[Rfam]
Purine riboswitch aptamer: a 98-nucleotide RNA from Lactobacillus apis.
RNA sequence: CUCAACAAGUAAAUAUUAAUCUAUAUAUUGUCGUAAUGUGGUCGACAGUCUCUACUCAGAACCGUAAAUUCUGAACUAUGGAUAAACAAUAGCAAUUA
Numbered sequence: 001c002u003c004a005a006c007a008a009g010u011a012a013a014u015a016u017u018a019a020u021c022u023a024u025a026u027a028u029u030g031u032c033g034u035a036a037u038g039u040g041g042u043c044g045a046c047a048g049u050c051u052c053u054a055c056u057c058a059g060a061a062c063c064g065u066a067a068a069u070u071c072u073g074a075a076c077u078a079u080g081g082a083u084a085a086a087c088a089a090u091a092g093c094a095a096u097u098a
Stems, first nucleotide, its partner, number of pairs: 019083007029047005056074006
Taxonomically the source falls in Lactobacillus (Bacteria, Bacillati, Bacillota, Lactobacillales).